[Rfam]
RNA sequence: AGAUGAGAGAAACACCCCGCCCGCAGGGAACUGCGGGUGAUGCCGGGCCGGGGCUCCCCCAGCACCGUCCCGGUAGUGCCUCCGCGCACACCACUGGAGCAUCGCGCUCCGGAACUCCUCACCGAUCGGA
Numbered sequence: 001a002g003a004u005g006a007g008a009g010a011a012a013c014a015c016c017c018c019g020c021c022c023g024c025a026g027g028g029a030a031c032u033g034c035g036g037g038u039g040a041u042g043c044c045g046g047g048c049c050g051g052g053g054c055u056c057c058c059c060c061a062g063c064a065c066c067g068u069c070c071c072g073g074u075a076g077u078g079c080c081u082c083c084g085c086g087c088a089c090a091c092c093a094c095u096g097g098a099g100c101a102u103c104g105c106g107c108u109c110c111g112g113a114a115c116u117c118c119u120c121a122c123c124g125a126u127c128g129g130a
Base pairs, nucleotide, nucleotide: 004121005120006119007118009117010116018039019038020037021036022035023034024033025032026031042074043073044072045071046070047069049067050066051065053063054062076089077088078087079086094112095111096110097109098108099107100106122129123128